This 74-nucleotide sequence from Electrophorus electricus belongs to the Rfam family "Small nucleolar RNA SNORD47".
It is annotated as a C/D-box small nucleolar RNA.
It scores 70 bits against the family's covariance model.
[Rfam]
RNA sequence: AACCUGUGAUGAAGAGAUUCUGCCAAAUGAGUCAGCUGAUUAUACCCUUUACCGUUCCAUUUAUCUCUGAGGUU
Numbered sequence: 001a002a003c004c005u006g007u008g009a010u011g012a013a014g015a016g017a018u019u020c021u022g023c024c025a026a027a028u029g030a031g032u033c034a035g036c037u038g039a040u041u042a043u044a045c046c047c048u049u050u051a052c053c054g055u056u057c058c059a060u061u062u063a064u065c066u067c068u069g070a071g072g073u074u
Stems, first nucleotide, its partner, number of pairs: 001074004
The literature on the family includes a 2002 paper in Mol Cell Biol by Galardi et al., "Purified box C/D snoRNPs are able to reproduce site-specific 2'-O-methylation of target RNA in vitro". The organism belongs to Electrophorus, within Eukaryota.